RNA sequence: AGAGACACUUGGGAACCUUUGUGAUGUCACACAGAGAAGUCACAGCGCAGCACCUGAGGGGUCUAU
Numbered sequence: 001a002g003a004g005a006c007a008c009u010u011g012g013g014a015a016c017c018u019u020u021g022u023g024a025u026g027u028c029a030c031a032c033a034g035a036g037a038a039g040u041c042a043c044a045g046c047g048c049a050g051c052a053c054c055u056g057a058g059g060g061g062u063c064u065a066u
Base pairs, nucleotide, nucleotide: 001066003064004063005062006061008058009057012054017047019045020044021043022042023041024040025039026032027031
Dot-bracket structure: (.((((.((..(....(.(((((((((...))......))))))).)......)..))..)))).)

This 66-nucleotide RNA from Ictidomys tridecemlineatus belongs to the Rfam family "MAT2A 3'UTR stem loop B". The match comes from Rfam's covariance-model search (59 bits). A reference for the family is Parker et al. (2011), "New families of human regulatory RNA structures identified by comparative analysis of vertebrate genomes", Genome Res. The source organism's lineage runs through Eukaryota, Teleostomi, Euteleostomi, Euarchontoglires and Ictidomys. By type it is a cis-regulatory element. Pairs were carried over by alignment from the consensus structure, which is taken from published work.